[Rfam]
RNA sequence: GAUCGCGGUGAUGACGUCACGAAAUUCAAGCUCAACAGACCGGAAUGCAGGCUUCUCUUCGUCUGAGAAUUUUGCGUGUCGACCACCUAUGAACUGAGCGAUC
Number, nucleotide and partner (000 for none) at each position: 001g103002a102003u101004c100005g099006c098007g000008g000009u000010g000011a000012u000013g000014a000015c000016g000017u000018c000019a000020c000021g000022a000023a000024a000025u000026u000027c000028a000029a000030g000031c000032u000033c000034a000035a000036c000037a000038g000039a000040c000041c000042g000043g000044a000045a000046u000047g000048c000049a000050g000051g000052c000053u000054u000055c000056u000057c000058u000059u000060c000061g000062u000063c000064u000065g000066a000067g000068a000069a000070u000071u000072u000073u000074g000075c000076g000077u000078g000079u000080c000081g000082a000083c000084c000085a000086c000087c000088u000089a000090u000091g000092a000093a000094c000095u000096g000097a000098g006099c005100g004101a003102u002103c001
The family of this 103-nucleotide sequence from Durio zibethinus is "Small nucleolar RNA Z107/R87". The literature on the family includes a 2001 paper in J Mol Biol by Barneche et al., "Identification of 66 box C/D snoRNAs in Arabidopsis thaliana: extensive gene duplications generated multiple isoforms predicting new ribosomal RNA 2'-O-methylation sites". Rfam classes the family as a C/D-box small nucleolar RNA.